[Rfam]
RNA sequence: AUGGUUGCUGUGAUUAUAAAAAAUUCCUCGUUCUGAAUUGCUAGGCUUCUUUUAGCAUGACAGACACCGAAUCACCCAUAGAAUAUGAGCACC
Numbered sequence: 001a002u003g004g005u006u007g008c009u010g011u012g013a014u015u016a017u018a019a020a021a022a023a024u025u026c027c028u029c030g031u032u033c034u035g036a037a038u039u040g041c042u043a044g045g046c047u048u049c050u051u052u053u054a055g056c057a058u059g060a061c062a063g064a065c066a067c068c069g070a071a072u073c074a075c076c077c078a079u080a081g082a083a084u085a086u087g088a089g090c091a092c093c
Stems, first nucleotide, its partner, number of pairs: 003093002006091004